The family of this 136-nucleotide RNA sequence from Trogon melanurus is "Small nucleolar RNA SNORA41". On this family, see Huttenhofer et al., EMBO J 2001: "RNomics: an experimental approach that identifies 201 candidates for novel, small, non-messenger RNAs in mouse". Its family is annotated with nucleolus and RNA processing in the Gene Ontology. ACA41 is a member of the H/ACA class of snoRNA that guide the sites of modification of uridines to pseudouridines. NCBI's taxonomy places the organism under Eukaryota, Chordata, Dinosauria, Saurischia, Trogon. It scores 95 bits against the family's covariance model. The family has 31 seed sequences and 676 matches in Rfam 15.1.
[Rfam]
Nucleotides: 136
Stems, first nucleotide, its partner, number of pairs: 003061004017047007025039001075125005091115005097109002
Number, partner (000 for none) and nucleotide at each position: 001000u002000u003061c004060c005059a006058c007000a008000g009000u010000u011000a012000c013000u014000g015000g016000u017047c018046u019045g020044g021043a022042a023041c024000c025039g026000c027000u028000c029000a030000g031000a032000a033000c034000u035000g036000u037000g038000g039025c040000a041023g042022u043021u044020c045019c046018a047017g048000u049000a050000u051000u052000c053000c054000c055000u056000c057000u058006g059005u060004g061003g062000a063000a064000a065000a066000u067000c068000a069000a070000c071000u072000g073000u074000u075125a076124c077123a078122u079121g080000g081000u082000g083000u084000c085000a086000u087000a088000a089000g090000c091115u092114c093113c094112u095111u096000c097109u098108c099000a100000g101000g102000c103000g104000c105000u106000c107000u108098g109097a110000a111095a112094a113093g114092g115091a116000a117000u118000u119000u120000c121079u122078a123077u124076g125075u126000a127000a128000c129000a130000a131000a132000c133000a134000a135000a136000g